[Rfam]
RNA sequence: GAGAGUAGGUGCGGUGGUUGCAGCACAACUCAAGGAUUAACUAAUUCUUGGGCUCUGCUGAGGAAAGUCCGGGCUUCCCCAAAGGCUAGACUGCUGGGCAACUCCCAGGGCGAGCGAUCGUGCGGAAAGUGCCACAGAAAUAUACCGCCAUCUUGGCAAUUCAUAAUUCAUGAGCGCAAGCCACUGAGAAUUAGGUUAAAUAGCCUGAUGAAAUCACGGUUUAGCUGCCAUGAUAUUGCAUUUUUAGCUUAAUCAAGAAUGCUGAGAUGGUAAGGGUGCAAAGGUGCGGUAAGAGCGCACCAGCAGGAUCGGGAGAUCCUGGCUCGGUAAACCCCAGUCGGAAGCAAGGCGAGUUGGAAAAAGAAGCUGCUGCCUUUAUGAUUCUUUUGCCAAUUAUCUGCGAUCGGGCAACUGGUUGUAGAUCUGAGCCGCUAGAGGUAUCUGGCAACAGGUAUCCCAGAUAGAUAACCGCCAGUAAAGCUUAGUUAAUCAGUUUUGCUAACAGAACCCGGCUUACGGCUUACUCUUCUAC
Numbered sequence: 001g002a003g004a005g006u007a008g009g010u011g012c013g014g015u016g017g018u019u020g021c022a023g024c025a026c027a028a029c030u031c032a033a034g035g036a037u038u039a040a041c042u043a044a045u046u047c048u049u050g051g052g053c054u055c056u057g058c059u060g061a062g063g064a065a066a067g068u069c070c071g072g073g074c075u076u077c078c079c080c081a082a083a084g085g086c087u088a089g090a091c092u093g094c095u096g097g098g099c100a101a102c103u104c105c106c107a108g109g110g111c112g113a114g115c116g117a118u119c120g121u122g123c124g125g126a127a128a129g130u131g132c133c134a135c136a137g138a139a140a141u142a143u144a145c146c147g148c149c150a151u152c153u154u155g156g157c158a159a160u161u162c163a164u165a166a167u168u169c170a171u172g173a174g175c176g177c178a179a180g181c182c183a184c185u186g187a188g189a190a191u192u193a194g195g196u197u198a199a200a201u202a203g204c205c206u207g208a209u210g211a212a213a214u215c216a217c218g219g220u221u222u223a224g225c226u227g228c229c230a231u232g233a234u235a236u237u238g239c240a241u242u243u244u245u246a247g248c249u250u251a252a253u254c255a256a257g258a259a260u261g262c263u264g265a266g267a268u269g270g271u272a273a274g275g276g277u278g279c280a281a282a283g284g285u286g287c288g289g290u291a292a293g294a295g296c297g298c299a300c301c302a303g304c305a306g307g308a309u310c311g312g313g314a315g316a317u318c319c320u321g322g323c324u325c326g327g328u329a330a331a332c333c334c335c336a337g338u339c340g341g342a343a344g345c346a347a348g349g350c351g352a353g354u355u356g357g358a359a360a361a362a363g364a365a366g367c368u369g370c371u372g373c374c375u376u377u378a379u380g381a382u383u384c385u386u387u388u389g390c391c392a393a394u395u396a397u398c399u400g401c402g403a404u405c406g407g408g409c410a411a412c413u414g415g416u417u418g419u420a421g422a423u424c425u426g427a428g429c430c431g432c433u434a435g436a437g438g439u440a441u442c443u444g445g446c447a448a449c450a451g452g453u454a455u456c457c458c459a460g461a462u463a464g465a466u467a468a469c470c471g472c473c474a475g476u477a478a479a480g481c482u483u484a485g486u487u488a489a490u491c492a493g494u495u496u497u498g499c500u501a502a503c504a505g506a507a508c509c510c511g512g513c514u515u516a517c518g519g520c521u522u523a524c525u526c527u528u529c530u531a532c
Stems, first nucleotide, its partner, number of pairs: 001528010011517001013473007021060005027054001029052009065515003069512005074344004089339005094108005109123001110121004124334002129332002131328003145275002147271012283301006303323001304321007348430003437456008

The record is a 532-nucleotide sequence from Thalassoporum mexicanum, which matches "Bacterial RNase P class A" in Rfam. Rfam classes the family as a ribozyme. The source organism's lineage runs through Bacteria, Bacillati, Cyanophyceae, Thalassoporum and Thalassoporum mexicanum.